RNA: Plastid-rps12 3UTR RNA
Organism: Leucothrinax morrisii
RNA sequence: GGUUUACAUUGGUGCAAAUCCAAUCACCUAGAUUUGAGAUGAAAAGCAAUUCCCCAUUGGGGGCAAAUGGUCAUCCAUUAAGCGGAGGAAAUGGUAUU
Numbered sequence: 001g002g003u004u005u006a007c008a009u010u011g012g013u014g015c016a017a018a019u020c021c022a023a024u025c026a027c028c029u030a031g032a033u034u035u036g037a038g039a040u041g042a043a044a045a046g047c048a049a050u051u052c053c054c055c056a057u058u059g060g061g062g063g064c065a066a067a068u069g070g071u072c073a074u075c076c077a078u079u080a081a082g083c084g085g086a087g088g089a090a091a092u093g094g095u096a097u098u
Stems, first nucleotide, its partner, number of pairs: 009023004052087001054085002056078002059075002062072003
Dot-bracket structure: ........((((.......))))............................(.((((.((.(((.....))).)).)).....)).)...........